[Rfam]
RNA: Nitrogen stress-induced RNA 9
Organism: Calothrix sp. 336/3
RNA sequence: AUUCACGUCUGUGACUGUGAGUGUGGCUAAUUGCACGUUAGUCACUGUUGCUGAUUGUUGGGAAGGUGUAGGGACACUACUUAAAGGUGUUUCCUGCAUGACAGGCAUCUCGCAAGAGGUGCCU
Numbered sequence: 001a002u003u004c005a006c007g008u009c010u011g012u013g014a015c016u017g018u019g020a021g022u023g024u025g026g027c028u029a030a031u032u033g034c035a036c037g038u039u040a041g042u043c044a045c046u047g048u049u050g051c052u053g054a055u056u057g058u059u060g061g062g063a064a065g066g067u068g069u070a071g072g073g074a075c076a077c078u079a080c081u082u083a084a085a086g087g088u089g090u091u092u093c094c095u096g097c098a099u100g101a102c103a104g105g106c107a108u109c110u111c112g113c114a115a116g117a118g119g120u121g122c123c124u
Base pairs, nucleotide, nucleotide: 006066008064010062012060013059014058015057017055018054020052021051022050023045024044025043026042027041028040029039067098068097069096070095071094072093073092074091075089076088077087078086103124104123105122106121107120108119109118110117111116